[Rfam]
Description
Shown here is a 170-nucleotide RNA from Cajanus cajan, a member of the family "small nucleolar RNA snoR143". Pairs were carried over by alignment from the consensus structure, which was predicted with RNAalifold. For this family Rfam cites "Mining small RNA sequencing data: a new approach to identify small nucleolar RNAs in Arabidopsis" (Chen and Wu, Nucleic Acids Res, 2009).
RNA sequence: UUGCACUGUGUGUUUUGUACGAGGAAACCGUUGUGUUUUGUUUUCUCGUUGAAGUGUCAGUGCGCACAGAGAAAGCUCAAUUUGGGCAGCGGCCAGACAACCGUAGGGAUGGUUUUCCACAGAUUAUGACCUUUUCUUUCCUCAUUCUCUACUGAUUCCAUCCCACAUUU
Numbered sequence: 001u002u003g004c005a006c007u008g009u010g011u012g013u014u015u016u017g018u019a020c021g022a023g024g025a026a027a028c029c030g031u032u033g034u035g036u037u038u039u040g041u042u043u044u045c046u047c048g049u050u051g052a053a054g055u056g057u058c059a060g061u062g063c064g065c066a067c068a069g070a071g072a073a074a075g076c077u078c079a080a081u082u083u084g085g086g087c088a089g090c091g092g093c094c095a096g097a098c099a100a101c102c103g104u105a106g107g108g109a110u111g112g113u114u115u116u117c118c119a120c121a122g123a124u125u126a127u128g129a130c131c132u133u134u135u136c137u138u139u140c141c142u143c144a145u146u147c148u149c150u151a152c153u154g155a156u157u158c159c160a161u162c163c164c165a166c167a168u169u170u
Stems, first nucleotide, its partner, number of pairs: 002064005009056003013052002017049001020048008106164007126145002129142001